[Rfam]
Background:
Shown here is a 133-nucleotide RNA sequence from Xenopus laevis, a member of the family "Small nucleolar RNA SNORA77". Its family is annotated with nucleolus and RNA processing in the Gene Ontology. It scores 57 bits against the family's covariance model. Rfam describes the family as follows. ACA63 (SNORA77) is a member of the H/ACA class of snoRNAs that guide the sites of modification of uridines to pseudouridines. This snoRNA was identified by computational screening and its expression in mouse experimentally verified by Northern blot and primer extension analysis. ACA63 is proposed to guide the pseudouridylation of 18S rRNA U814. The organism belongs to Xenopus, within Eukaryota.

RNA sequence: GCAGACUCACUCUGUACCUGACUGCAGCCUCCAGUUUUGGUGCUUUUUAAGUCUGCUAAAUAAAACUCCAAGAUCAACAUUGAGGCUUUCAUACUUUUGAAGAAAUGCUACUUGUAGAUCAUGGGAUACUUAU
Number, nucleotide and partner (000 for none) at each position: 001g056002c055003a054004g053005a052006c051007u000008c000009a000010c000011u000012c000013u000014g043015u042016a041017c040018c039019u000020g037021a000022c034023u033024g032025c000026a000027g000028c000029c000030u000031c000032c024033a023034g022035u000036u000037u020038u000039g018040g017041u016042g015043c014044u000045u000046u000047u000048u000049a000050a000051g006052u005053c004054u003055g002056c001057u000058a000059a000060a000061u000062a000063a000064a000065a000066c000067u000068c124069c123070a122071a000072g120073a119074u118075c117076a000077a115078c114079a113080u000081u000082g111083a000084g109085g108086c107087u000088u000089u000090c000091a000092u000093a000094c000095u000096u000097u000098u000099g000100a000101a000102g000103a000104a000105a000106u000107g086108c085109u084110a000111c082112u000113u079114g078115u077116a000117g075118a074119u073120c072121a000122u070123g069124g068125g000126a000127u000128a000129c000130u000131u000132a000133u000